Background:
Shown here is a 66-nucleotide RNA sequence from [Actinobacillus] rossii, a member of the family "int-alpA RNA". It scores 39 bits against the family's covariance model. Acidobacteria (1 example), Planctomycetes (1 example), Proteobacteria. Pairs were carried over by alignment from the consensus structure, which is taken from published work.
RNA sequence: AGCGCACCUAGGCUGAUCCCCGAAAGCAAGAAACCUUAUCUUGUUGGUGCGUUCCUAUCAUAAGGA
Numbered sequence: 001a002g003c004g005c006a007c008c009u010a011g012g013c014u015g016a017u018c019c020c021c022g023a024a025a026g027c028a029a030g031a032a033a034c035c036u037u038a039u040c041u042u043g044u045u046g047g048u049g050c051g052u053u054c055c056u057a058u059c060a061u062a063a064g065g066a
Stems, first nucleotide, its partner, number of pairs: 001053008011021002026044005035065003